[Rfam]
RNA sequence: ACAAAAUGAAGAGGUUGCGUUUUUCAAUAGUAGCCGCUGUGAGGUGAAUAAGCACUGGACCAGUGAGUGGAAGGGAAAAACGCCGAAACAGGCUGGAACUUAUUUUUCAGUUUGUUGGGUCAUGGCUUAAGAGGUUAUGGACUGUCGCGGAUUUACCGCGGGGCGCUUCCAACGAG
Numbered sequence: 001a002c003a004a005a006a007u008g009a010a011g012a013g014g015u016u017g018c019g020u021u022u023u024u025c026a027a028u029a030g031u032a033g034c035c036g037c038u039g040u041g042a043g044g045u046g047a048a049u050a051a052g053c054a055c056u057g058g059a060c061c062a063g064u065g066a067g068u069g070g071a072a073g074g075g076a077a078a079a080a081c082g083c084c085g086a087a088a089c090a091g092g093c094u095g096g097a098a099c100u101u102a103u104u105u106u107u108c109a110g111u112u113u114g115u116u117g118g119g120u121c122a123u124g125g126c127u128u129a130a131g132a133g134g135u136u137a138u139g140g141a142c143u144g145u146c147g148c149g150g151a152u153u154u155a156c157c158g159c160g161g162g163g164c165g166c167u168u169c170c171a172a173c174g175a176g
Stems, first nucleotide, its partner, number of pairs: 008169004017083009033068002035065005087116012117143002120140008145161006